[Rfam]
RNA sequence: AACAUUCAACGCUGUCGGUGAGUUUGAGCUAAAUUGACAAAAACCAUCGACCGUUGAGUGUACC
Numbered sequence: 001a002a003c004a005u006u007c008a009a010c011g012c013u014g015u016c017g018g019u020g021a022g023u024u025u026g027a028g029c030u031a032a033a034u035u036g037a038c039a040a041a042a043a044c045c046a047u048c049g050a051c052c053g054u055u056g057a058g059u060g061u062a063c064c
Stems, first nucleotide, its partner, number of pairs: 003060009014051007022044004
Shown here is a 64-nucleotide RNA sequence from Salmo salar, a member of the family "mir-181 microRNA precursor family".
Pairs were carried over by alignment from the consensus structure, which was predicted with PFOLD.
Lineage of the source: Eukaryota > Eumetazoa > Deuterostomia > Teleostomi > Salmo.
The sequence is in the family's curated seed alignment.
A reference for the family is Ambros (2001), "microRNAs: tiny regulators with great potential", Cell.